[Rfam]
RNA sequence: CUCUUAUCCAGAGAGGCGGAGGGACUGGCCCUACGAUGCCCGGCAACCAGCAAGUACACACACUUGACAAGGUGCCAAAUCCUGCAAAGCGAUAGGCUUUGAAAGAUGAGAG
Numbered sequence: 001c002u003c004u005u006a007u008c009c010a011g012a013g014a015g016g017c018g019g020a021g022g023g024a025c026u027g028g029c030c031c032u033a034c035g036a037u038g039c040c041c042g043g044c045a046a047c048c049a050g051c052a053a054g055u056a057c058a059c060a061c062a063c064u065u066g067a068c069a070a071g072g073u074g075c076c077a078a079a080u081c082c083u084g085c086a087a088a089g090c091g092a093u094a095g096g097c098u099u100u101g102a103a104a105g106a107u108g109a110g111a112g
Base pairs, nucleotide, nucleotide: 001112002111003110004109005108006107007106008105013041015040016039017038021031022030023029025084027082028081042076043075044074045073047072048071051066052065053064054063080104085101086100087099088098089097090096
The family of this 112-nucleotide RNA sequence from Halobacillus karajensis is "SAM riboswitch aptamer (S box leader)". Rfam's curators write: The SAM riboswitch is found upstream of a number of genes which code for proteins involved in methionine or cysteine biosynthesis in Gram-positive bacteria.